[Rfam]
RNA sequence: AGAAAAAAUUAAUAGACCCUUCAUAUAUCCUCGAUAAUAUGGUUCGAGAGUCUCUACCGGGUAACCUUAAAACACCCGACUAUGAAGGCAGAAUGAGUUCGA
Numbered sequence: 001a002g003a004a005a006a007a008a009u010u011a012a013u014a015g016a017c018c019c020u021u022c023a024u025a026u027a028u029c030c031u032c033g034a035u036a037a038u039a040u041g042g043u044u045c046g047a048g049a050g051u052c053u054c055u056a057c058c059g060g061g062u063a064a065c066c067u068u069a070a071a072a073c074a075c076c077c078g079a080c081u082a083u084g085a086a087g088g089c090a091g092a093a094u095g096a097g098u099u100c101g102a
Stems, first nucleotide, its partner, number of pairs: 018088008030048005058078005
Dot-bracket structure: .................((((((((....(((((.........))))).........(((((...........)))))..))))))))..............